RNA sequence: CCAGUCGGCUGGACGGCCGCUGCCAAAAGCAGAGGAAAGUCCGGGCUCCACGGAGACACGGCGCCGGAUAAGGUCCGGCGGGGGCGACCCCAGGGAUAGCGCCACAGAAAGCAAACCGCCGCGCAAGCGGUAAGGGUGAAAGGGUGCGGUAAGAGCGCACCGCCCGAGCGGCGACGUUCGGGGCAGGGCAAGCCCCGCCGGGAGCAAAACCGAAUAGGGGCGACGGAAGGAUUUCGAGCGCGAGCUUGAGCCUUCAACCCGUCUCCGGGACUGUCGCCCGGGUUGGUUGCUAGAGGCGGGCGGCAACGUCCGUCCCAGAGGAAUGGUCGUCACGUUCUGCAAAGGACGUACAGAACCCGGCUUACAGGCCGGCUGGCGCU
Numbered sequence: 001c002c003a004g005u006c007g008g009c010u011g012g013a014c015g016g017c018c019g020c021u022g023c024c025a026a027a028a029g030c031a032g033a034g035g036a037a038a039g040u041c042c043g044g045g046c047u048c049c050a051c052g053g054a055g056a057c058a059c060g061g062c063g064c065c066g067g068a069u070a071a072g073g074u075c076c077g078g079c080g081g082g083g084g085c086g087a088c089c090c091c092a093g094g095g096a097u098a099g100c101g102c103c104a105c106a107g108a109a110a111g112c113a114a115a116c117c118g119c120c121g122c123g124c125a126a127g128c129g130g131u132a133a134g135g136g137u138g139a140a141a142g143g144g145u146g147c148g149g150u151a152a153g154a155g156c157g158c159a160c161c162g163c164c165c166g167a168g169c170g171g172c173g174a175c176g177u178u179c180g181g182g183g184c185a186g187g188g189c190a191a192g193c194c195c196c197g198c199c200g201g202g203a204g205c206a207a208a209a210c211c212g213a214a215u216a217g218g219g220g221c222g223a224c225g226g227a228a229g230g231a232u233u234u235c236g237a238g239c240g241c242g243a244g245c246u247u248g249a250g251c252c253u254u255c256a257a258c259c260c261g262u263c264u265c266c267g268g269g270a271c272u273g274u275c276g277c278c279c280g281g282g283u284u285g286g287u288u289g290c291u292a293g294a295g296g297c298g299g300g301c302g303g304c305a306a307c308g309u310c311c312g313u314c315c316c317a318g319a320g321g322a323a324u325g326g327u328c329g330u331c332a333c334g335u336u337c338u339g340c341a342a343a344g345g346a347c348g349u350a351c352a353g354a355a356c357c358c359g360g361c362u363u364a365c366a367g368g369c370c371g372g373c374u375g376g377c378g379c380u
Stems, first nucleotide, its partner, number of pairs: 001376010011365001012331007020032004037363003041360005046204004055264001059200005064078005079093001080091004094195002099193002101189003116135002118131005143161006162184001163182008208288004218279006259269002295314008
Source information
Bacterial RNase P class A: a 380-nucleotide sequence from Methylocystis sp. B8. Pairs were carried over by alignment from the consensus structure, which is taken from published work. NCBI's taxonomy places the organism under Bacteria, Pseudomonadati, Hyphomicrobiales, Methylocystaceae, Methylocystis.